Shown here is a 109-nucleotide sequence from Dyadobacter jejuensis, a member of the family "SAM riboswitch aptamer (S box leader)". About the family: The SAM riboswitch is found upstream of a number of genes which code for proteins involved in methionine or cysteine biosynthesis in Gram-positive bacteria. The family's consensus secondary structure is taken from published work.
[Rfam]
RNA sequence: GAUUUAUAGAGAAGAGGCGAGAGAAUGGGCUCUACGAACCUCUGGCAACCUGCUACCACUGUUGGAGAAAGGUGCUAAUUCCCACCUAAGCAAUUAGGAAAUAUAAACU
Numbered sequence: 001g002a003u004u005u006a007u008a009g010a011g012a013a014g015a016g017g018c019g020a021g022a023g024a025a026u027g028g029g030c031u032c033u034a035c036g037a038a039c040c041u042c043u044g045g046c047a048a049c050c051u052g053c054u055a056c057c058a059c060u061g062u063u064g065g066a067g068a069a070a071g072g073u074g075c076u077a078a079u080u081c082c083c084a085c086c087u088a089a090g091c092a093a094u095u096a097g098g099a100a101a102u103a104u105a106a107a108c109u
Base pairs, nucleotide, nucleotide: 001109003107004106005105006104007103008102013043014042015041016040017039021032022031023030026084027083028082029081044076045075046074047073049072050071053067054066080101085098086097087096088095089094
Rfam links the family to the GO term regulation of gene expression.